[Rfam]
RNA sequence: AACCACUCCAAAUCCGACUGGGAAACUCAUCAAUUAUACUGAAAUACCGAGACAAGCAUGCUCAGCUAAUGGCGGGCCUCAGGCUCCCGGAGGGAGUCUCGCUGUUAAAGCGACGGAGGAUUACAACGGCUGAGAGGCACUCAAAUCCUGUCAUUCGGAGUUUCAUCACCGUCCUUUGGAGUGGCCCUUUAA
Numbered sequence: 001a002a003c004c005a006c007u008c009c010a011a012a013u014c015c016g017a018c019u020g021g022g023a024a025a026c027u028c029a030u031c032a033a034u035u036a037u038a039c040u041g042a043a044a045u046a047c048c049g050a051g052a053c054a055a056g057c058a059u060g061c062u063c064a065g066c067u068a069a070u071g072g073c074g075g076g077c078c079u080c081a082g083g084c085u086c087c088c089g090g091a092g093g094g095a096g097u098c099u100c101g102c103u104g105u106u107a108a109a110g111c112g113a114c115g116g117a118g119g120a121u122u123a124c125a126a127c128g129g130c131u132g133a134g135a136g137g138c139a140c141u142c143a144a145a146u147c148c149u150g151u152c153a154u155u156c157g158g159a160g161u162u163u164c165a166u167c168a169c170c171g172u173c174c175u176u177u178g179g180a181g182u183g184g185c186c187c188u189u190u191a192a
Base pairs, nucleotide, nucleotide: 056138057137061134062133063132064131065130066129067128070125071124077119078118079117080116082098083097084096085095086094087093088092101111102110103109
Bacteroidales-1 6S-Bacteroidales RNA suggested: a 192-nucleotide RNA sequence from Prevotella sp. CAG:485. The organism belongs to Prevotella, within Bacteria. A search with the family's covariance model found it, with a score of 112 bits. About the family: Bacteroidales-1 was first reported in a comparative genomics-based approach of genome and metagenome sequences from Weinberg et al. 2010 In a high-resolution transcriptome map study of Bacteroides thetaiotaomicron, Ryan et al. 2020 report this sRNA as 6S RNA homologue of Bacteroides, in the study they obtain evidence of small product RNAs (pRNAs) related to 6S function. A reference for the family is Ryan et al. (2020), "A high-resolution transcriptome map identifies small RNA regulation of metabolism in the gut microbe Bacteroides thetaiotaomicron", Nat Commun.